[Rfam]
The family of this 77-nucleotide RNA sequence from Parnassius apollo is "Mammalian CPEB3 ribozyme".
RNA sequence: UUCAAAUACCAGGGGGUCAUUGUAGAAGCGUGCUCGUCGCGACCCCUGCCAGCUCUUUUCAGGGCUGCAACUCUACA
Numbered sequence: 001u002u003c004a005a006a007u008a009c010c011a012g013g014g015g016g017u018c019a020u021u022g023u024a025g026a027a028g029c030g031u032g033c034u035c036g037u038c039g040c041g042a043c044c045c046c047u048g049c050c051a052g053c054u055c056u057u058u059u060c061a062g063g064g065c066u067g068c069a070a071c072u073c074u075a076c077a
Stems, first nucleotide, its partner, number of pairs: 013046006021077006028040003050067007